[Rfam]
RNA: HDV ribozyme from F. prausnitzii
Organism: Rodentolepis nana
Nucleotides: 070
Base pairs, nucleotide, nucleotide: 001036002035003034004033005032006031007030017029018028019027043056044055045054046053047052
Number, partner (000 for none) and nucleotide at each position: 001036a002035g003034g004033g005032u006031g007030c008000g009000a010000u011000a012000g013000a014000c015000a016000u017029a018028c019027c020000u021000c022000c023000a024000c025000g026000u027019g028018g029017u030007g031006u032005a033004u034003c035002c036001u037000g038000g039000g040000c041000a042000a043056c044055g045054u046053a047052u048000a049000a050000a051000c052047a053046u054045a055044c056043g057000g058000c059000a060000a061000a062000a063000a064000a065000g066000u067000c068000u069000a070000u